Annotation:
The family of this 130-nucleotide RNA from Castor canadensis is "Small nucleolar RNA SNORA51". It is annotated as an H/ACA-box small nucleolar RNA. Taxonomically the source falls in Castor (Eukaryota, Craniata, Amniota, Eutheria). ACA51 is a member of the H/ACA class of snoRNA that guide the sites of modification of uridines to pseudouridines. A search with the family's covariance model found it, with a score of 102 bits.
RNA sequence: GGCUUCCUGGUGCUUACCACAGGCCAUUCUCACACUGACUGGAUACAAAGAGGCGGCAAAGUAAGCCUACCCCAUAUACACCUCAGCCCAGGGCCUCUGCCUGGUCUGUAUUGAGAAUGGGGGAAAAAAU
Numbered sequence: 001g002g003c004u005u006c007c008u009g010g011u012g013c014u015u016a017c018c019a020c021a022g023g024c025c026a027u028u029c030u031c032a033c034a035c036u037g038a039c040u041g042g043a044u045a046c047a048a049a050g051a052g053g054c055g056g057c058a059a060a061g062u063a064a065g066c067c068u069a070c071c072c073c074a075u076a077u078a079c080a081c082c083u084c085a086g087c088c089c090a091g092g093g094c095c096u097c098u099g100c101c102u103g104g105u106c107u108g109u110a111u112u113g114a115g116a117a118u119g120g121g122g123g124a125a126a127a128a129a130u
Stems, first nucleotide, its partner, number of pairs: 002057003006053003020041003027032001070122006084108003088104005